The record is a 349-nucleotide sequence from Thiothrix unzii, which matches "Bacterial RNase P class A" in Rfam. It scores 355 bits against the family's covariance model.
[Rfam]
RNA sequence: AGAGCUGACUGGGCAAUCGCUGUCCUGCUUGCAGGAGGGAGGAAAGUCCGGGCUUCACAGGGUAAGACGCUAGGUAACGCCUAGGCGGCGUGAGCCGACGGAAAGUGCAACAGAAAAUAAACCGCCUGCGAGUUCGCUCGUCGGUAAGGGUGAAACGGUGCGGUAAGAGCGCACCGCGUCGCUGGUAACAGUCGACGGCACGGCAAACCCCGUCUGAAGCAAAACCAAAUAGGGGUGCUAUGGUGUGACCCGCACUGCACCCGGGUAGGUUGCUUGAGGUGUACGGUGACGUACAUCCCAGAUGAAUGAUUGUCCUCGACAGAACCCGGCUUAUAGGUCAGCUCUCUAU
Numbered sequence: 001a002g003a004g005c006u007g008a009c010u011g012g013g014c015a016a017u018c019g020c021u022g023u024c025c026u027g028c029u030u031g032c033a034g035g036a037g038g039g040a041g042g043a044a045a046g047u048c049c050g051g052g053c054u055u056c057a058c059a060g061g062g063u064a065a066g067a068c069g070c071u072a073g074g075u076a077a078c079g080c081c082u083a084g085g086c087g088g089c090g091u092g093a094g095c096c097g098a099c100g101g102a103a104a105g106u107g108c109a110a111c112a113g114a115a116a117a118u119a120a121a122c123c124g125c126c127u128g129c130g131a132g133u134u135c136g137c138u139c140g141u142c143g144g145u146a147a148g149g150g151u152g153a154a155a156c157g158g159u160g161c162g163g164u165a166a167g168a169g170c171g172c173a174c175c176g177c178g179u180c181g182c183u184g185g186u187a188a189c190a191g192u193c194g195a196c197g198g199c200a201c202g203g204c205a206a207a208c209c210c211c212g213u214c215u216g217a218a219g220c221a222a223a224a225c226c227a228a229a230u231a232g233g234g235g236u237g238c239u240a241u242g243g244u245g246u247g248a249c250c251c252g253c254a255c256u257g258c259a260c261c262c263g264g265g266u267a268g269g270u271u272g273c274u275u276g277a278g279g280u281g282u283a284c285g286g287u288g289a290c291g292u293a294c295a296u297c298c299c300a301g302a303u304g305a306a307u308g309a310u311u312g313u314c315c316u317c318g319a320c321a322g323a324a325c326c327c328g329g330c331u332u333a334u335a336g337g338u339c340a341g342c343u344c345u346c347u348a349u
Stems, first nucleotide, its partner, number of pairs: 001345010011334001012314007020039002023036005044332003048329005053219004060251004065215005070084005085099001086097004100210002105208002107204002122149002124145003128141005157175006176199001177197005182191003223271004233262006242256005278297008
Pairs were carried over by alignment from the consensus structure, which is taken from published work. Taxonomically the source falls in Thiothrix (Bacteria, Gammaproteobacteria, Thiotrichales, Thiotrichaceae).